[Rfam]
RNA sequence: AGGACCAAUGAUGAGAUCUGGUGGCGUUUGAGUGAUACUCCAUGAACGCCAAGUAUCCAGAAAUCUGAGGUCAAU
Numbered sequence: 001a002g003g004a005c006c007a008a009u010g011a012u013g014a015g016a017u018c019u020g021g022u023g024g025c026g027u028u029u030g031a032g033u034g035a036u037a038c039u040c041c042a043u044g045a046a047c048g049c050c051a052a053g054u055a056u057c058c059a060g061a062a063a064u065c066u067g068a069g070g071u072c073a074a075u
Base pairs, nucleotide, nucleotide: 003072004071005070006069
This 75-nucleotide RNA belongs to the Rfam family "Small nucleolar RNA SNORD113/SNORD114 family". Rfam's curators put it in the seed alignment. About the family: The imprinted human domain at 14q32 contains two clusters of tandemly repeated small nucleolar RNAs named 14q(I) and 14q(II) snoRNAs. The family's RNA type in Rfam is C/D-box small nucleolar RNA. Its Rfam clan is "SNORD74 clan". Rfam links the family to the GO terms RNA processing and nucleolus.